[Rfam]
RNA sequence: CGUUAUCGAAGGAAAUGACCUUAAUUCAUAGCA
Numbered sequence: 001c002g003u004u005a006u007c008g009a010a011g012g013a014a015a016u017g018a019c020c021u022u023a024a025u026u027c028a029u030a031g032c033a
Stems, first nucleotide, its partner, number of pairs: 002032005008027001009022004

The family of this 33-nucleotide RNA sequence is "S4-Flavobacteria ribosomal protein leader". Clan: Ribosomal Protein S4 Leader clan. The sequence is in the family's curated seed alignment. Rfam classes the family as a cis-regulatory leader. For this family Rfam cites "Discovery of 20 novel ribosomal leader candidates in bacteria and archaea" (Eckert and Weinberg, BMC Microbiol, 2020). The base pairs follow the family's consensus structure, which is taken from published work.